[Rfam]
RNA sequence: ACACCCAUUUUAUUGCUGUUAUAGGUUUUAACCGAGCUUAGCGUUGUUCAUUUUUUUUCACAACAGUCAUGUAAAAAAUUGAACACACCCGACUGAGCACCCCGAAAUACAAGGGCCUCACCAGGACUUAACUGCCCUGUAACGCCCUGAAAAUGGUCAUAACGCCCCAAUUAGGGGCAA
Numbered sequence: 001a002c003a004c005c006c007a008u009u010u011u012a013u014u015g016c017u018g019u020u021a022u023a024g025g026u027u028u029u030a031a032c033c034g035a036g037c038u039u040a041g042c043g044u045u046g047u048u049c050a051u052u053u054u055u056u057u058u059c060a061c062a063a064c065a066g067u068c069a070u071g072u073a074a075a076a077a078a079u080u081g082a083a084c085a086c087a088c089c090c091g092a093c094u095g096a097g098c099a100c101c102c103c104g105a106a107a108u109a110c111a112a113g114g115g116c117c118u119c120a121c122c123a124g125g126a127c128u129u130a131a132c133u134g135c136c137c138u139g140u141a142a143c144g145c146c147c148u149g150a151a152a153a154u155g156g157u158c159a160u161a162a163c164g165c166c167c168c169a170a171u172u173a174g175g176g177g178c179a180a
Stems, first nucleotide, its partner, number of pairs: 024101003028097001034093001036090001041088001043086002046084003052078006059071001164178002167175001
Source information
This 180-nucleotide RNA sequence from Pseudomonas guineae belongs to the Rfam family "Pseudomonas sRNA P1". About the family: This small RNA (sRNA) was computationally identified in the genome of the opportunistic pathogen Pseudomonas aeruginosa and its expression verified by northern blot analysis. There appears to be two related copies of P1 sRNA in the P.aeruginosa PA01 genome and both copies appear to be located upstream of predicted glutamine synthetase genes. This sRNA appears to be conserved amongst several Pseudomonas species. P1 has a predicted Rho independent terminator at the 3' end but the function of P1 is unknown. NCBI's taxonomy places the organism under Bacteria, Pseudomonadota, Gammaproteobacteria, Pseudomonadales, Pseudomonas. For this family Rfam cites "Identification of 17 Pseudomonas aeruginosa sRNAs and prediction of sRNA-encoding genes in 10 diverse pathogens using the bioinformatic tool sRNAPredict2" (Livny et al., Nucleic Acids Res, 2006). The family's RNA type in Rfam is non-coding RNA gene.